[Rfam]
RNA sequence: ACUGGAAACCAGCACGGGCGUCGAGGCAACUCUGCGCCCGUGCACGCAUGUUAGGGCUAAUAAAGACAAU
Numbered sequence: 001a002c003u004g005g006a007a008a009c010c011a012g013c014a015c016g017g018g019c020g021u022c023g024a025g026g027c028a029a030c031u032c033u034g035c036g037c038c039c040g041u042g043c044a045c046g047c048a049u050g051u052u053a054g055g056g057c058u059a060a061u062a063a064a065g066a067c068a069a070u
Base pairs, nucleotide, nucleotide: 012043013042014041015040016039017038018037019036020035023032024031025030
Shown here is a 70-nucleotide RNA sequence from Serratia rubidaea, a member of the family "tpke11". Lineage of the source: Bacteria > Pseudomonadati > Gammaproteobacteria > Yersiniaceae > Serratia. In Yersinia located in ICR upstream dnaJ (chaperone)gene. It scores 66 bits against the family's covariance model. Gene Ontology term of the family: response to temperature stimulus. The base pairs follow the family's consensus structure, which was predicted with WAR. By type it is a small RNA.